[Rfam]
RNA sequence: UUCUGAAUAACAAUGCAAACAUAAACACACAACUAUGGUAAAACUUUUAACUCUUAACCUGCUGGGAUUCACGCAUUCUGUGCGAGGAUAAGGCUCGGUUAGAGAAAAGUUCACUAUCCACACUUAGCCCGCACGUCAAAAUGCGGGCUUUUUUUAUCGAAU
Numbered sequence: 001u002u003c004u005g006a007a008u009a010a011c012a013a014u015g016c017a018a019a020c021a022u023a024a025a026c027a028c029a030c031a032a033c034u035a036u037g038g039u040a041a042a043a044c045u046u047u048u049a050a051c052u053c054u055u056a057a058c059c060u061g062c063u064g065g066g067a068u069u070c071a072c073g074c075a076u077u078c079u080g081u082g083c084g085a086g087g088a089u090a091a092g093g094c095u096c097g098g099u100u101a102g103a104g105a106a107a108a109g110u111u112c113a114c115u116a117u118c119c120a121c122a123c124u125u126a127g128c129c130c131g132c133a134c135g136u137c138a139a140a141a142u143g144c145g146g147g148c149u150u151u152u153u154u155u156a157u158c159g160a161a162u
Base pairs, nucleotide, nucleotide: 013022014021015020036120037119038118042111043110044109045108047107048106051104053102054101056100057099058098059097061095063093067089068088069087072084073083074082075081076080127148128147129146130145131144132143133142

Rfam assigns this 162-nucleotide sequence from Glaesserella parasuis to the family "Actinobacillus sRNA 14". From the family's description: Arrc stands for Actinobacillus pleuropneumoniae Regulatory RNA Candidate. May control the expression of ferric permease (gene afuB2) and ferredoxin (fdx). TargetRNA2 was used for the predictions.